[Rfam]
RNA sequence: AUACUGUCUGAUUUCGUAUGGUUUGUAUUCCAUACAUAGUCAAGAAGUAUUCCAAGGAAACACACCACUUUGAUCAUCGUGCUAUAGCUAAUAGCACUCACAUUAUUGGUGGCACAUUACUUGGA
Dot-bracket structure: ((((....(((((..((((((........))))))..)))))....))))(((((.......(((((.......................................))))).........)))))
Numbered sequence: 001a002u003a004c005u006g007u008c009u010g011a012u013u014u015c016g017u018a019u020g021g022u023u024u025g026u027a028u029u030c031c032a033u034a035c036a037u038a039g040u041c042a043a044g045a046a047g048u049a050u051u052c053c054a055a056g057g058a059a060a061c062a063c064a065c066c067a068c069u070u071u072g073a074u075c076a077u078c079g080u081g082c083u084a085u086a087g088c089u090a091a092u093a094g095c096a097c098u099c100a101c102a103u104u105a106u107u108g109g110u111g112g113c114a115c116a117u118u119a120c121u122u123g124g125a
Stems, first nucleotide, its partner, number of pairs: 001050004009042005016035006051125005063111005
Hairpin ribozyme 1 from viruses-like metatranscriptomes: a 125-nucleotide sequence. Its family is annotated with RNA nuclease activity in the Gene Ontology.